[Rfam]
RNA: epsC RNA
RNA sequence: AGGUGAUGUCUUCUUACCUUUAUCAAGGAAGGCACUCGGCUAUGCUGUGGGUGAAUUUGCCUUAGACACUUGGUUGUCAGGGGUGUGGUGUGAGGUGGGGUUGGAUGCCCU
Numbered sequence: 001a002g003g004u005g006a007u008g009u010c011u012u013c014u015u016a017c018c019u020u021u022a023u024c025a026a027g028g029a030a031g032g033c034a035c036u037c038g039g040c041u042a043u044g045c046u047g048u049g050g051g052u053g054a055a056u057u058u059g060c061c062u063u064a065g066a067c068a069c070u071u072g073g074u075u076g077u078c079a080g081g082g083g084u085g086u087g088g089u090g091u092g093a094g095g096u097g098g099g100g101u102u103g104g105a106u107g108c109c110c111u
Stems, first nucleotide, its partner, number of pairs: 001019004007034007035094004039089008049062005065078004097111005